[Rfam]
RNA sequence: AAAGAUAGAGGUUGAGAAUCUGUCACCAACACGCCGCUUAGCUAGCGGGUCAGAAAUGCGGGAGCCUCGACAGUCCCGCCUAUCUUA
Numbered sequence: 001a002a003a004g005a006u007a008g009a010g011g012u013u014g015a016g017a018a019u020c021u022g023u024c025a026c027c028a029a030c031a032c033g034c035c036g037c038u039u040a041g042c043u044a045g046c047g048g049g050u051c052a053g054a055a056a057u058g059c060g061g062g063a064g065c066c067u068c069g070a071c072a073g074u075c076c077c078g079c080c081u082a083u084c085u086u087a
Base pairs, nucleotide, nucleotide: 002086003085004084005083006082007081008080011030012029013028014027020073021072022071023070024069032053034048035047036046037045058079059078060077061076062075
Record summary
This 87-nucleotide sequence belongs to the Rfam family "skipping-rope RNA". The sequence is in the family's curated seed alignment.